[Rfam]
RNA sequence: GCCGGACGUAGCGGUGUGCGUCUGUAAUCCAACUACUAGGAGGCCGGGUAUAUGAAUGGUUUGAGAUGAGGAGUUCUGUGAGCAUUGCGCCUAUGUAGAUCGGAUGUCCACAGUAAGCUUGGCGUCAACAUGGUUAUAUUGUCGGAGGAUAGAAUACCCAGGUUGUUUAAUGAGAGAGGUAACGGCUCAGGGGAGAAAUCCUGCAGGCAAAACUCUCCACGUCAUUCGGUAUUGGGAUAGCAUCUGUGAAUAGAGCAGUGUUGGCAGCCUCAUCAAUAUGACCAGACUCGUACCUUU
Numbered sequence: 001g002c003c004g005g006a007c008g009u010a011g012c013g014g015u016g017u018g019c020g021u022c023u024g025u026a027a028u029c030c031a032a033c034u035a036c037u038a039g040g041a042g043g044c045c046g047g048g049u050a051u052a053u054g055a056a057u058g059g060u061u062u063g064a065g066a067u068g069a070g071g072a073g074u075u076c077u078g079u080g081a082g083c084a085u086u087g088c089g090c091c092u093a094u095g096u097a098g099a100u101c102g103g104a105u106g107u108c109c110a111c112a113g114u115a116a117g118c119u120u121g122g123c124g125u126c127a128a129c130a131u132g133g134u135u136a137u138a139u140u141g142u143c144g145g146a147g148g149a150u151a152g153a154a155u156a157c158c159c160a161g162g163u164u165g166u167u168u169a170a171u172g173a174g175a176g177a178g179g180u181a182a183c184g185g186c187u188c189a190g191g192g193g194a195g196a197a198a199u200c201c202u203g204c205a206g207g208c209a210a211a212a213c214u215c216u217c218c219a220c221g222u223c224a225u226u227c228g229g230u231a232u233u234g235g236g237a238u239a240g241c242a243u244c245u246g247u248g249a250a251u252a253g254a255g256c257a258g259u260g261u262u263g264g265c266a267g268c269c270u271c272a273u274c275a276a277u278a279u280g281a282c283c284a285g286a287c288u289c290g291u292a293c294c295u296u297u
Stems, first nucleotide, its partner, number of pairs: 001044003004023007028041003046295006054287001057284005065274007076267004081262008091253004096248001101246007108236002111234005117227001120224006126165004131160003135156003139152005166172001174217005185208003192201003